RNA sequence: CGUAUGAAGAAGAAGUUAUCCGCUUCUCACCUUGGGAAUUUUGUUUCUGCAAGGUUAAUAUGGCAAUUUACAGCCAUGGGCUUUUUGGGCGGAUACUUUAGGUGUCUGUCUUUUUUAUUUUAG
Numbered sequence: 001c002g003u004a005u006g007a008a009g010a011a012g013a014a015g016u017u018a019u020c021c022g023c024u025u026c027u028c029a030c031c032u033u034g035g036g037a038a039u040u041u042u043g044u045u046u047c048u049g050c051a052a053g054g055u056u057a058a059u060a061u062g063g064c065a066a067u068u069u070a071c072a073g074c075c076a077u078g079g080g081c082u083u084u085u086u087g088g089g090c091g092g093a094u095a096c097u098u099u100a101g102g103u104g105u106c107u108g109u110c111u112u113u114u115u116u117a118u119u120u121u122a123g
Stems, first nucleotide, its partner, number of pairs: 011027006029055003034048005088110010
Shown here is a 123-nucleotide sequence from Peptostreptococcaceae bacterium pGA-8, a member of the family "Ribosomal protein L20 leader". The match comes from Rfam's covariance-model search (60 bits). The family's consensus secondary structure was predicted with CMfinder. Rfam's curators write: This family is a putative r-protein leader autoregulatory structure found in B. subtilis and other low-GC Gram-positive bacteria. It is located in the 5' untranslated regions of mRNAs encoding initiation factor 3 followed by ribosomal proteins L35 and L20 (infC-rpmI-rplT). Rfam classes the family as a cis-regulatory leader.